RNA: cspA thermoregulator
Organism: Morganella morganii
RNA sequence: AUUGGUUUGGAAGUACAGACCUAUUUAUGUCAGUCCGAUUUUAAGUUGUUCUCCGUCAAGCGUUAUCCAAGAUACCACUUCAUAGCGAAUUCCUUCUGAUAGUUCCCAUAAGUAAAAACGUAAUCAAACCGCUUAUAUGCCUUAUGGCAACAAAAUCAAUUUAAAGGAAAUUCAUAUGUCCGCAACAAUUACCGGUACUGUAAAAUGGUUUAACGAUGAUAAAGGUUUUGGCUUUAUCACUCCUGCUGACGGCAGCAAAGACGUGUUCGUUCACUUCUCUGCAAUCCAGAGCGACAGCUUCAAAUCUCUGGCAGAAGGCCAGCAGGUUUCUUUCACCAUCGAAAAUGGUAUGAAAGGCCCGGCUGCAGCUAACGUGGUUGCUCUGUAAUCACCGCUGUCAGUAACAGAUUUUAAAAACCUCACUCUGGUGAGGUUUUUUUAU
Numbered sequence: 001a002u003u004g005g006u007u008u009g010g011a012a013g014u015a016c017a018g019a020c021c022u023a024u025u026u027a028u029g030u031c032a033g034u035c036c037g038a039u040u041u042u043a044a045g046u047u048g049u050u051c052u053c054c055g056u057c058a059a060g061c062g063u064u065a066u067c068c069a070a071g072a073u074a075c076c077a078c079u080u081c082a083u084a085g086c087g088a089a090u091u092c093c094u095u096c097u098g099a100u101a102g103u104u105c106c107c108a109u110a111a112g113u114a115a116a117a118a119c120g121u122a123a124u125c126a127a128a129c130c131g132c133u134u135a136u137a138u139g140c141c142u143u144a145u146g147g148c149a150a151c152a153a154a155a156u157c158a159a160u161u162u163a164a165a166g167g168a169a170a171u172u173c174a175u176a177u178g179u180c181c182g183c184a185a186c187a188a189u190u191a192c193c194g195g196u197a198c199u200g201u202a203a204a205a206u207g208g209u210u211u212a213a214c215g216a217u218g219a220u221a222a223a224g225g226u227u228u229u230g231g232c233u234u235u236a237u238c239a240c241u242c243c244u245g246c247u248g249a250c251g252g253c254a255g256c257a258a259a260g261a262c263g264u265g266u267u268c269g270u271u272c273a274c275u276u277c278u279c280u281g282c283a284a285u286c287c288a289g290a291g292c293g294a295c296a297g298c299u300u301c302a303a304a305u306c307u308c309u310g311g312c313a314g315a316a317g318g319c320c321a322g323c324a325g326g327u328u329u330c331u332u333u334c335a336c337c338a339u340c341g342a343a344a345a346u347g348g349u350a351u352g353a354a355a356g357g358c359c360c361g362g363c364u365g366c367a368g369c370u371a372a373c374g375u376g377g378u379u380g381c382u383c384u385g386u387a388a389u390c391a392c393c394g395c396u397g398u399c400a401g402u403a404a405c406a407g408a409u410u411u412u413a414a415a416a417a418c419c420u421c422a423c424u425c426u427g428g429u430g431a432g433g434u435u436u437u438u439u440u441a442u
Base pairs, nucleotide, nucleotide: 004021005020006019007018008017009016029243032241033240034239044235045234048233050231051230053225054224056222062220063219064218065217067215071211072210074209075208076207081178082177083176084175092167093166094165095164099162102125104123139148140147141146180195181194182193247341248340249339251337252336260268261267273327274326275325276324279322280321281320282318286311287310288309289308290307293306294305346361347360348359351357362386363385365383366380367379368378369377370376389407394402395401396400413438414437415436416435417434418433419432420431421430422429423428